Notes:
The record is a 222-nucleotide sequence, which matches "IS605-orfB-I RNA" in Rfam. The sequence is in the family's curated seed alignment. The family's RNA type in Rfam is small RNA.

[Rfam]
RNA sequence: GUCCUAUACAGAUGUAUUCAACGCAAGAUAGUUGAGCAUCUCCCUGUAGGACGAAGUUUAUUAGAAGCUCUGACAACAAUUCUUAUUGUGUGGCUGUGGCUACGGUCGAAAUGAGAUGAGUUAGAGUGGAAUAGGUUAACCGUAAGACCUUGGGUUGAAAAAUUCUAAAAUGGAGCUAGAGAUAUGGAUUUAUUAAAUUUUGCAUUUUCUGGUUACGGUCGG
Numbered sequence: 001g002u003c004c005u006a007u008a009c010a011g012a013u014g015u016a017u018u019c020a021a022c023g024c025a026a027g028a029u030a031g032u033u034g035a036g037c038a039u040c041u042c043c044c045u046g047u048a049g050g051a052c053g054a055a056g057u058u059u060a061u062u063a064g065a066a067g068c069u070c071u072g073a074c075a076a077c078a079a080u081u082c083u084u085a086u087u088g089u090g091u092g093g094c095u096g097u098g099g100c101u102a103c104g105g106u107c108g109a110a111a112u113g114a115g116a117u118g119a120g121u122u123a124g125a126g127u128g129g130a131a132u133a134g135g136u137u138a139a140c141c142g143u144a145a146g147a148c149c150u151u152g153g154g155u156u157g158a159a160a161a162a163u164u165c166u167a168a169a170a171u172g173g174a175g176c177u178a179g180a181g182a183u184a185u186g187g188a189u190u191u192a193u194u195a196a197a198u199u200u201u202g203c204a205u206u207u208u209c210u211g212g213u214u215a216c217g218g219u220c221g222g
Stems, first nucleotide, its partner, number of pairs: 001052008010041006018035005023029001067127008081116007092107002095104003133150005139219006145171001152165005176212007184205003